[Rfam]
Nucleotides: 092
Stems, first nucleotide, its partner, number of pairs: 001092005
Number, partner (000 for none) and nucleotide at each position: 001092g002091c003090u004089g005088u006000u007000c008000u009000g010000u011000g012000a013000u014000g015000a016000g017000g018000c019000c020000u021000g022000g023000a024000a025000u026000g027000u028000g029000c030000g031000c032000u033000g034000g035000a036000c037000g038000c039000a040000g041000c042000g043000c044000c045000g046000a047000g048000u049000c050000a051000g052000a053000c054000u055000g056000c057000g058000g059000a060000a061000c062000c063000a064000u065000u066000c067000c068000c069000u070000g071000u072000u073000g074000c075000c076000u077000g078000c079000c080000u081000u082000c083000u084000g085000a086000g087000a088005a089004c090003a091002g092001c

The record is a 92-nucleotide RNA from Sciurus vulgaris, which matches "Small nucleolar RNA U83B" in Rfam. The base pairs follow the family's consensus structure. It scores 95 bits against the family's covariance model. Rfam classes the family as a C/D-box small nucleolar RNA. From the family's description: U83B belongs to the C/D family of snoRNAs.